[Rfam]
RNA sequence: GACCCGUCACAACGGCUUCCUGACGUGGCGGGGUUAACCUAAUGGAGCG
Numbered sequence: 001g002a003c004c005c006g007u008c009a010c011a012a013c014g015g016c017u018u019c020c021u022g023a024c025g026u027g028g029c030g031g032g033g034u035u036a037a038c039c040u041a042a043u044g045g046a047g048c049g
Stems, first nucleotide, its partner, number of pairs: 004031007013022002015048003019045002
Dot-bracket structure: ...(((((((..(([[[.[[))..)))))))............]]]]].
This 49-nucleotide RNA belongs to the Rfam family "SAM/SAH riboswitch aptamer".